Shown here is a 108-nucleotide RNA from Gemella haemolysans, a member of the family "Streptococcus sRNA SpF41". The literature on the family includes a 2012 paper in PLoS Pathog by Mann et al., "Control of virulence by small RNAs in Streptococcus pneumoniae". The organism belongs to Gemella haemolysans, within Bacteria.
[Rfam]
RNA sequence: UAAACGUAAGGAGUAGUAUAUAGGGAUUGCGCCUUGAUGGAGGAGAUUCCGGUUCGAAUCCGGGCUAUUACGUCUAAGACAUCUAUUUGUAAAUAGGUGUCUUUUUUU
Numbered sequence: 001u002a003a004a005c006g007u008a009a010g011g012a013g014u015a016g017u018a019u020a021u022a023g024g025g026a027u028u029g030c031g032c033c034u035u036g037a038u039g040g041a042g043g044a045g046a047u048u049c050c051g052g053u054u055c056g057a058a059u060c061c062g063g064g065c066u067a068u069u070a071c072g073u074c075u076a077a078g079a080c081a082u083c084u085a086u087u088u089g090u091a092a093a094u095a096g097g098u099g100u101c102u103u104u105u106u107u108u
Stems, first nucleotide, its partner, number of pairs: 004073006012066002032043004048064005079100008